Rfam assigns this 184-nucleotide RNA from Gouania willdenowi to the family "Small nucleolar RNA SNORA81".
The literature on the family includes a 2005 paper in Nucleic Acids Res by Gu et al., "A novel experimental approach for systematic identification of box H/ACA snoRNAs from eukaryotes".
RNA sequence: CGCGUUUCACCAAAGCACCCUGCUGGAACCGCACGGGCGGAGCCUCCGGGUUCAGCUCGUGUGACCGUGUAAGCACGGACACACCAGAGACGCAGAGAAUCAUCACAGGGUCGCAAAUGAGACGUAGAGGGACCUCUUUCUUAAUGUCCAGUGUCUUCGGCCUCAAGAUCCUUGUGACACACGU
Numbered sequence: 001c002g003c004g005u006u007u008c009a010c011c012a013a014a015g016c017a018c019c020c021u022g023c024u025g026g027a028a029c030c031g032c033a034c035g036g037g038c039g040g041a042g043c044c045u046c047c048g049g050g051u052u053c054a055g056c057u058c059g060u061g062u063g064a065c066c067g068u069g070u071a072a073g074c075a076c077g078g079a080c081a082c083a084c085c086a087g088a089g090a091c092g093c094a095g096a097g098a099a100u101c102a103u104c105a106c107a108g109g110g111u112c113g114c115a116a117a118u119g120a121g122a123c124g125u126a127g128a129g130g131g132a133c134c135u136c137u138u139u140c141u142u143a144a145u146g147u148c149c150a151g152u153g154u155c156u157u158c159g160g161c162c163u164c165a166a167g168a169u170c171c172u173u174g175u176g177a178c179a180c181a182c183g184u
Stems, first nucleotide, its partner, number of pairs: 018078002021075004028068002031065001034059002037056002040053005103177008127152001130149003

Rfam classes the family as an H/ACA-box small nucleolar RNA.